RNA sequence: UUCAUAGACAACGAUUUGUUUUCGAAGCCUACACAAUGGCAUUUCGCCAGGUCUCCGGGCCAAUGCUUCGGGGAAAGUCUCCGGCCGUAAUAGCGGAAACGCAGCGGACGAAUCCUUCCGUUUUUACUUUAGCGUCGAAGAUCUAAGGUUGUGCUUUUUGGUAAUGUCUGUCGAAUUUUUGGUUGGAUGAAGCUUCUUGUUAAGCAAUGUUUCCCGCUUACGUAAAGCCAUGACAGCCGGCUCCUUUGAGCGUUAGGUUGUUAGGUGGUGGGCGCCGGUGAUGUUGUCAUCAAGGUCUGGUUUGUUCAAUGAAUGGUUUGGCUUAAGGGCAUUGCCAGGGUUCAACAUUUCUGAGACGCUUUAGUGAUUCCUCGUUGAGUUUUGUCUUUCGGCAAUGGGACGGUGCGUCCUAAACGAUAGGUAUAACAAAUGGUCAGUAUCUGGCUAACCCAAUGGAGCUCACUCUUGUCUAUGA
Numbered sequence: 001u002u003c004a005u006a007g008a009c010a011a012c013g014a015u016u017u018g019u020u021u022u023c024g025a026a027g028c029c030u031a032c033a034c035a036a037u038g039g040c041a042u043u044u045c046g047c048c049a050g051g052u053c054u055c056c057g058g059g060c061c062a063a064u065g066c067u068u069c070g071g072g073g074a075a076a077g078u079c080u081c082c083g084g085c086c087g088u089a090a091u092a093g094c095g096g097a098a099a100c101g102c103a104g105c106g107g108a109c110g111a112a113u114c115c116u117u118c119c120g121u122u123u124u125u126a127c128u129u130u131a132g133c134g135u136c137g138a139a140g141a142u143c144u145a146a147g148g149u150u151g152u153g154c155u156u157u158u159u160g161g162u163a164a165u166g167u168c169u170g171u172c173g174a175a176u177u178u179u180u181g182g183u184u185g186g187a188u189g190a191a192g193c194u195u196c197u198u199g200u201u202a203a204g205c206a207a208u209g210u211u212u213c214c215c216g217c218u219u220a221c222g223u224a225a226a227g228c229c230a231u232g233a234c235a236g237c238c239g240g241c242u243c244c245u246u247u248g249a250g251c252g253u254u255a256g257g258u259u260g261u262u263a264g265g266u267g268g269u270g271g272g273c274g275c276c277g278g279u280g281a282u283g284u285u286g287u288c289a290u291c292a293a294g295g296u297c298u299g300g301u302u303u304g305u306u307c308a309a310u311g312a313a314u315g316g317u318u319u320g321g322c323u324u325a326a327g328g329g330c331a332u333u334g335c336c337a338g339g340g341u342u343c344a345a346c347a348u349u350u351c352u353g354a355g356a357c358g359c360u361u362u363a364g365u366g367a368u369u370c371c372u373c374g375u376u377g378a379g380u381u382u383u384g385u386c387u388u389u390c391g392g393c394a395a396u397g398g399g400a401c402g403g404u405g406c407g408u409c410c411u412a413a414a415c416g417a418u419a420g421g422u423a424u425a426a427c428a429a430a431u432g433g434u435c436a437g438u439a440u441c442u443g444g445c446u447a448a449c450c451c452a453a454u455g456g457a458g459c460u461c462a463c464u465c466u467u468g469u470c471u472a473u474g475a
Stems, first nucleotide, its partner, number of pairs: 002475010014431006022071007038055002041052004076460002079458004093102003104121005351379001364375004433445005
RNA: RNase MRP